RNA sequence: ACAUAGUCCGCAAUGUUUGGCUAAGAUCAAGUGGUGUAGUAUCUGUUCUUAUCAGUUUAAUAUCUGAUAUGUGGGCUAUGUGUCCACUUCAAUAUUAAAUUUUUUUUUAUGGGAAGGGGCCGCUACAGUGCUUGCCACUGGGUCCCUUGAGCGUCGCCUGGCCGUUGCACUGCUGGCAGGGCCUGGCGCGCCCCAA
Numbered sequence: 001a002c003a004u005a006g007u008c009c010g011c012a013a014u015g016u017u018u019g020g021c022u023a024a025g026a027u028c029a030a031g032u033g034g035u036g037u038a039g040u041a042u043c044u045g046u047u048c049u050u051a052u053c054a055g056u057u058u059a060a061u062a063u064c065u066g067a068u069a070u071g072u073g074g075g076c077u078a079u080g081u082g083u084c085c086a087c088u089u090c091a092a093u094a095u096u097a098a099a100u101u102u103u104u105u106u107u108u109a110u111g112g113g114a115a116g117g118g119g120c121c122g123c124u125a126c127a128g129u130g131c132u133u134g135c136c137a138c139u140g141g142g143u144c145c146c147u148u149g150a151g152c153g154u155c156g157c158c159u160g161g162c163c164g165u166u167g168c169a170c171u172g173c174u175g176g177c178a179g180g181g182c183c184u185g186g187c188g189c190g191c192c193c194c195a196a
Stems, first nucleotide, its partner, number of pairs: 002025001005022004050069006071087006114148008127139004151189006158180002161177003

A member of the RNA family "U2 spliceosomal RNA" from Miscanthus lutarioriparius, 196 nucleotides long.
Rfam's curators write: U2 is a small nuclear RNA (snRNA) component of the spliceosome (involved in pre-mRNA splicing). Complementary binding between U2 snRNA (in an area lying towards the 5' end but 3' to hairpin I) and the branchpoint sequence (BPS) of the intron results the bulging out of an unpaired adenosine, on the BPS, which initiates a nucleophilic attack at the intronic 5' splice site, thus starting the first of two transesterification reactions that mediate splicing.
It is annotated as a spliceosomal small nuclear RNA.
It scores 110 bits against the family's covariance model.
Pairs were carried over by alignment from the consensus structure, which is taken from published work.